ASpks TB sRNA: a 75-nucleotide sequence from Kitasatospora kifunensis. A reference for the family is Arnvig and Young (2009), "Identification of small RNAs in Mycobacterium tuberculosis", Mol Microbiol.
[Rfam]
RNA sequence: CUUCAACGAACCCAACCACAACGGCCGAUCCGCACCCCGAUCCUGACCAUAGGUCGCCAGCAGCGCCUGCGCCUC
Numbered sequence: 001c002u003u004c005a006a007c008g009a010a011c012c013c014a015a016c017c018a019c020a021a022c023g024g025c026c027g028a029u030c031c032g033c034a035c036c037c038c039g040a041u042c043c044u045g046a047c048c049a050u051a052g053g054u055c056g057c058c059a060g061c062a063g064c065g066c067c068u069g070c071g072c073c074u075c
Stems, first nucleotide, its partner, number of pairs: 016024002031071003038065002043060003047056001049054001
The family's consensus secondary structure is taken from published work.